[Rfam]
RNA sequence: GGUUUCCAAUCAGUUCAACUUCGGGGUCACCUACAGAGUCCUUGUGACUCCCAUACCUCGUGGAAAGUCCCCGGAGAUGGGGCGGAAAGCGCCGCAUCGUGAUGAUGUCAGGCCGGGGGAGCGCUGUAGGGGAGGUCACCUGACCAGUGCUGCCCCGUAGCGUUGCUCAGAGCACAGAUAAUGUUGAAGGACUUCACUGUCCAACGAAAUGGGGCUUACUCGGUUUGGAAAC
Numbered sequence: 001g002g003u004u005u006c007c008a009a010u011c012a013g014u015u016c017a018a019c020u021u022c023g024g025g026g027u028c029a030c031c032u033a034c035a036g037a038g039u040c041c042u043u044g045u046g047a048c049u050c051c052c053a054u055a056c057c058u059c060g061u062g063g064a065a066a067g068u069c070c071c072c073g074g075a076g077a078u079g080g081g082g083c084g085g086a087a088a089g090c091g092c093c094g095c096a097u098c099g100u101g102a103u104g105a106u107g108u109c110a111g112g113c114c115g116g117g118g119g120a121g122c123g124c125u126g127u128a129g130g131g132g133a134g135g136u137c138a139c140c141u142g143a144c145c146a147g148u149g150c151u152g153c154c155c156c157g158u159a160g161c162g163u164u165g166c167u168c169a170g171a172g173c174a175c176a177g178a179u180a181a182u183g184u185u186g187a188a189g190g191a192c193u194u195c196a197c198u199g200u201c202c203a204a205c206g207a208a209a210u211g212g213g214g215c216u217u218a219c220u221c222g223g224u225u226u227g228g229a230a231a232c
Base pairs, nucleotide, nucleotide: 002232003231004230005229006228007227008226009224010223011222014188015187016186017185018184019183022060023059024058025057026056027055036050037049038048039047040046065217066216067215069214070213071212072211081093082092083091084090094108095107096106097105098104099103110158112156117154118153120151121150122149127146129144130140131139190201191200192199
This 232-nucleotide RNA sequence from Operophtera brumata belongs to the Rfam family "RNase MRP". By type it is a ribozyme. Pairs were carried over by alignment from the consensus structure, which is taken from published work. A reference for the family is Schmitt et al. (1993), "Secondary structure of RNase MRP RNA as predicted by phylogenetic comparison", FASEB J. The source organism's lineage runs through Eukaryota, Opisthokonta, Dicondylia, Larentiinae and Operophtera.